[Rfam]
RNA: MIR1520 microRNA precursor family
Organism: Glycine max
RNA sequence: UUCUGAUUGGAUGAUGACUAUCACAUGUCAAUUUUUGAUUGGAUGACGACUUUAUGGACGAUGAAAUGGAUUAUUGUUAUCAUUGGUCAAUCAGAACAUGACACAUGACUGUCAUCGCCC
Numbered sequence: 001u002u003c004u005g006a007u008u009g010g011a012u013g014a015u016g017a018c019u020a021u022c023a024c025a026u027g028u029c030a031a032u033u034u035u036u037g038a039u040u041g042g043a044u045g046a047c048g049a050c051u052u053u054a055u056g057g058a059c060g061a062u063g064a065a066a067u068g069g070a071u072u073a074u075u076g077u078u079a080u081c082a083u084u085g086g087u088c089a090a091u092c093a094g095a096a097c098a099u100g101a102c103a104c105a106u107g108a109c110u111g112u113c114a115u116c117g118c119c120c
Base pairs, nucleotide, nucleotide: 021108022107023106026103029100030099033096034095035094036093038091039090040089